Shown here is a 175-nucleotide RNA from Acinetobacter baylyi, a member of the family "Acinetobacter sRNA 28". By type it is a small RNA. The source organism's lineage runs through Bacteria, Pseudomonadati, Gammaproteobacteria, Acinetobacter and Acinetobacter baylyi.
[Rfam]
RNA sequence: UUAUUUGAAUUGGCAAACUAUAGGAGUAAGCAGCAUGUCGAACUUUAGGAAAUUCUUUAAAUAAUUGGCACGUUGUCAGCUCACGGACAAGUGUCCAGAUCGCUUGUCCGAAUGCUCUAAAUCAAACCUGGCAUUCGUCAGGUUUUUUUGUGUCUGUUCAUAGGUGUUGAAAAUU
Numbered sequence: 001u002u003a004u005u006u007g008a009a010u011u012g013g014c015a016a017a018c019u020a021u022a023g024g025a026g027u028a029a030g031c032a033g034c035a036u037g038u039c040g041a042a043c044u045u046u047a048g049g050a051a052a053u054u055c056u057u058u059a060a061a062u063a064a065u066u067g068g069c070a071c072g073u074u075g076u077c078a079g080c081u082c083a084c085g086g087a088c089a090a091g092u093g094u095c096c097a098g099a100u101c102g103c104u105u106g107u108c109c110g111a112a113u114g115c116u117c118u119a120a121a122u123c124a125a126a127c128c129u130g131g132c133a134u135u136c137g138u139c140a141g142g143u144u145u146u147u148u149u150g151u152g153u154c155u156g157u158u159c160a161u162a163g164g165u166g167u168u169g170a171a172a173a174u175u
Base pairs, nucleotide, nucleotide: 003122006120008118012116013115014114015113017027018026019025030076031075032074033073034072036070037069038068039067040066041065049055050054084110085109086108087107088106089105090104091103092102093101124145125144126143127142128141129140130139131138132137153170154169
The literature on the family includes a 2014 paper in PLoS One by Sharma et al., "Identification of novel regulatory small RNAs in Acinetobacter baumannii".